[Rfam]
Nucleotides: 073
Stems, first nucleotide, its partner, number of pairs: 001073004010064003014060005020054002023051005030045002
Number, partner (000 for none) and nucleotide at each position: 001073c002072a003071u004070g005000u006000c007000u008000a009000u010064u011063g012062u013000a014060c015059u016058u017057c018056a019000u020054c021053a022000g023051g024050u025049g026048c027047u028000c029000u030045g031044g032000u033000g034000u035000c036000c037000a038000c039000c040000g041000u042000a043000a044031c045030c046000c047027g048026g049025c050024a051023c052000a053021u054020g055000u056018u057017g058016a059015a060014g061000u062012a063011c064010a065000c066000u067000c068000a069000a070004u071003a072002u073001g
This 73-nucleotide sequence from Drosophila ananassae belongs to the Rfam family "mir-305 microRNA precursor family". For this family Rfam cites "Computational and transcriptional evidence for microRNAs in the honey bee genome" (Weaver et al., Genome Biol, 2007). Rfam's curators put it in the seed alignment. Pairs were carried over by alignment from the consensus structure, which was predicted with RNAalifold.